This 141-nucleotide RNA sequence from Carex littledalei belongs to the Rfam family "small nucleolar RNA snoR134". The literature on the family includes a 2009 paper in Nucleic Acids Res by Chen and Wu, "Mining small RNA sequencing data: a new approach to identify small nucleolar RNAs in Arabidopsis". The organism belongs to Carex subgen. Euthyceras, within Eukaryota. Pairs were carried over by alignment from the consensus structure, which was predicted with RNAalifold. The family's RNA type in Rfam is H/ACA-box small nucleolar RNA.

RNA sequence: AUGCACGUUGCUACCCCGGGCUUAUCUGAGAAACCAAUUGAAGACAAAAGCCCCAAUGCCUGUGCUAGAUUGAAACAGCCAUUCAGUGUUACAGAUCACGAAUUUUUAAUGUAUGAUUUGUGUCAAGAGAUGGCAAGAGUU
Number, nucleotide and partner (000 for none) at each position: 001a000002u000003g065004c064005a063006c062007g061008u000009u000010g059011c058012u000013a000014c000015c000016c000017c000018g053019g052020g051021c050022u049023u047024a000025u044026c043027u042028g000029a000030g000031a000032a000033a000034c000035c000036a000037a000038u000039u000040g000041a000042a027043g026044a025045c000046a000047a023048a000049a022050g021051c020052c019053c018054c000055a000056a000057u000058g011059c010060c000061u007062g006063u005064g004065c003066u000067a000068g000069a000070u000071u000072g000073a000074a000075a000076c000077a000078g134079c133080c132081a131082u130083u000084c129085a000086g000087u125088g124089u000090u122091a121092c120093a119094g118095a117096u000097c000098a112099c111100g110101a000102a000103u000104u000105u000106u000107u000108a000109a000110u100111g099112u098113a000114u000115g000116a000117u095118u094119u093120g092121u091122g090123u000124c088125a087126a000127g000128a000129g084130a082131u081132g080133g079134c078135a000136a000137g000138a000139g000140u000141u000